Shown here is a 78-nucleotide sequence from Sphaeramia orbicularis, a member of the family "Small nucleolar RNA MBII-202". On this family, see Huttenhofer et al., EMBO J 2001: "RNomics: an experimental approach that identifies 201 candidates for novel, small, non-messenger RNAs in mouse". Rfam links the family to the GO terms nucleolus and RNA processing. A search with the family's covariance model found it, with a score of 64 bits. The family's consensus secondary structure was predicted with PFOLD.
RNA sequence: AUGACAACUUCUCCGGAAUCUCUGUAUUUACUUGAUGAAUACUUUUGAACCCCUUUUUCUGAUGACUGCUGUUUGUUA
Numbered sequence: 001a002u003g004a005c006a007a008c009u010u011c012u013c014c015g016g017a018a019u020c021u022c023u024g025u026a027u028u029u030a031c032u033u034g035a036u037g038a039a040u041a042c043u044u045u046u047g048a049a050c051c052c053c054u055u056u057u058u059c060u061g062a063u064g065a066c067u068g069c070u071g072u073u074u075g076u077u078a
Stems, first nucleotide, its partner, number of pairs: 002078005